[Rfam]
RNA sequence: GCUCCCCAUCCAACACCGGGAUCUCCCAAUGUUAGUGCAGAAUUCCCGGCUCAACAUGGGGACAAAACAUAUUGCUUUCUCUUCCCUCCUUGGUGGAUUUUAUUCCUUCCAGGGCUUUGCGAGAAGCGGACAUA
Numbered sequence: 001g002c003u004c005c006c007c008a009u010c011c012a013a014c015a016c017c018g019g020g021a022u023c024u025c026c027c028a029a030u031g032u033u034a035g036u037g038c039a040g041a042a043u044u045c046c047c048g049g050c051u052c053a054a055c056a057u058g059g060g061g062a063c064a065a066a067a068c069a070u071a072u073u074g075c076u077u078u079c080u081c082u083u084c085c086c087u088c089c090u091u092g093g094u095g096g097a098u099u100u101u102a103u104u105c106c107u108u109c110c111a112g113g114g115c116u117u118u119g120c121g122a123g124a125a126g127c128g129g130a131c132a133u134a
Base pairs, nucleotide, nucleotide: 003062004061005060006059007058008057009056016049017048018047019046020045021044022041023040024039026037073128074127075126077124078123088114089113090112091111092110093109095106096105
RNA: Small nucleolar RNA SNORA49